[Rfam]
RNA sequence: GGGGAAGUCACUGGAGGCAGCGGUUCAUCGAUCUCUUCCUGAGAUUUUUUGUGGCAAAAAUACCACAAAACAUGAAUCGGUCGAUAAACCUCUGCAUCCAGCGUUCACUCU
Numbered sequence: 001g002g003g004g005a006a007g008u009c010a011c012u013g014g015a016g017g018c019a020g021c022g023g024u025u026c027a028u029c030g031a032u033c034u035c036u037u038c039c040u041g042a043g044a045u046u047u048u049u050u051g052u053g054g055c056a057a058a059a060a061u062a063c064c065a066c067a068a069a070a071c072a073u074g075a076a077u078c079g080g081u082c083g084a085u086a087a088a089c090c091u092c093u094g095c096a097u098c099c100a101g102c103g104u105u106c107a108c109u110c111u
Stems, first nucleotide, its partner, number of pairs: 013099003018094003022090004027085007036076003
The family of this 111-nucleotide sequence from Trema andersonii is "MIR162_1 microRNA precursor family". Rfam 15.1 lists 270 matches to the family in 158 species. Its Rfam clan is "MIR167 microRNA precursor clan". On this family, see Reinhart et al., Genes Dev 2002: "MicroRNAs in plants". The source organism's lineage runs through Eukaryota, Streptophytina, Gunneridae, rosids and Trema.